[Rfam]
RNA: Plant signal recognition particle RNA
RNA sequence: GCCGAGCUCAGCAGCGCGAGCUUGUGACCCAAGUGGGGGCAUUGAAGUGUUGGAACAUUGGGUCAGCACUGUGGAUUGGGCCAGGUUGGCUGUCUUCUGGCCUGCCCGUUCCAAACCCAGACCGGGCCAUGUGGCCCUUGCGAAGGCUUGGGUCACUUGGUUCCUGAAGUGGAGGGCACCGCGUGAGGCUGGUUUCACAGAGCAGCGACAACUUCCCGGUCCAGGCAGUGGAAGGAUUACAGGCCGGUGCCAACUCGGCCCAUCAUGGUUCACUAGGCUGACCUCGACUGAACUAACAUUUUU
Numbered sequence: 001g002c003c004g005a006g007c008u009c010a011g012c013a014g015c016g017c018g019a020g021c022u023u024g025u026g027a028c029c030c031a032a033g034u035g036g037g038g039g040c041a042u043u044g045a046a047g048u049g050u051u052g053g054a055a056c057a058u059u060g061g062g063u064c065a066g067c068a069c070u071g072u073g074g075a076u077u078g079g080g081c082c083a084g085g086u087u088g089g090c091u092g093u094c095u096u097c098u099g100g101c102c103u104g105c106c107c108g109u110u111c112c113a114a115a116c117c118c119a120g121a122c123c124g125g126g127c128c129a130u131g132u133g134g135c136c137c138u139u140g141c142g143a144a145g146g147c148u149u150g151g152g153u154c155a156c157u158u159g160g161u162u163c164c165u166g167a168a169g170u171g172g173a174g175g176g177c178a179c180c181g182c183g184u185g186a187g188g189c190u191g192g193u194u195u196c197a198c199a200g201a202g203c204a205g206c207g208a209c210a211a212c213u214u215c216c217c218g219g220u221c222c223a224g225g226c227a228g229u230g231g232a233a234g235g236a237u238u239a240c241a242g243g244c245c246g247g248u249g250c251c252a253a254c255u256c257g258g259c260c261c262a263u264c265a266u267g268g269u270u271c272a273c274u275a276g277g278c279u280g281a282c283c284u285c286g287a288c289u290g291a292a293c294u295a296a297c298a299u300u301u302u303u
Stems, first nucleotide, its partner, number of pairs: 001040003004023006028037003044302010056290002058287003061283006069276002071273007078261005084255002087252003091249002097247008106235002109233005116225002120221004124163006131156007140147002164169001171216005182207003189200003